Bacterial large subunit ribosomal RNA: a 267-nucleotide part of an RNA from Candidatus Gracilibacteria bacterium GN02-873. NCBI's taxonomy places the organism under Bacteria, Bacteria candidate phyla, Candidatus Altimarinota. A reference for the family is Yusupov et al. (2001), "Crystal structure of the ribosome at 5.5 A resolution", Science.
RNA sequence: GUUUAGAUACUUGAUGAGACCUGUUCCUAGUACGAGAGGACCGGAAUGGACGAACCCCUGGUGGAUCGGCUGUCAUCCAAUGGCACCGCCGAGUAGCUAAGUUCGGAAUGGAUAACCACUGAAAGCAUAUAAGUGGGAAGCUGACUCAAAGAUAAGGUAUCUCACCAGAUUUAGUCUGGAUAAGUGCCCUCGGAGACUACGAGGUUGAUAGGAUGUAAGUGGAAGCAUAGAAAUAUGUGGAGCUGAGCAUUACUAAUAGCACGAACG
Numbered sequence: 001g002u003u004u005a006g007a008u009a010c011u012u013g014a015u016g017a018g019a020c021c022u023g024u025u026c027c028u029a030g031u032a033c034g035a036g037a038g039g040a041c042c043g044g045a046a047u048g049g050a051c052g053a054a055c056c057c058c059u060g061g062u063g064g065a066u067c068g069g070c071u072g073u074c075a076u077c078c079a080a081u082g083g084c085a086c087c088g089c090c091g092a093g094u095a096g097c098u099a100a101g102u103u104c105g106g107a108a109u110g111g112a113u114a115a116c117c118a119c120u121g122a123a124a125g126c127a128u129a130u131a132a133g134u135g136g137g138a139a140g141c142u143g144a145c146u147c148a149a150a151g152a153u154a155a156g157g158u159a160u161c162u163c164a165c166c167a168g169a170u171u172u173a174g175u176c177u178g179g180a181u182a183a184g185u186g187c188c189c190u191c192g193g194a195g196a197c198u199a200c201g202a203g204g205u206u207g208a209u210a211g212g213a214u215g216u217a218a219g220u221g222g223a224a225g226c227a228u229a230g231a232a233a234u235a236u237g238u239g240g241a242g243c244u245g246a247g248c249a250u251u252a253c254u255a256a257u258a259g260c261a262c263g264a265a266c267g
Base pairs, nucleotide, nucleotide: 005162006161007160008159009158010157011156012155015148016147017146018145021049022048023047024046025045026044027043051105052104053103054102055101059099060098061097066092067091068090069089070088071085072084073083074082075081076080109143110142111141116136117135118134119133120132165179166178167177168176169175181264184262185261186260187259188204189203190202191201192200209255210254211253212251213250214249215248216247218244219243225238226237227236228235229234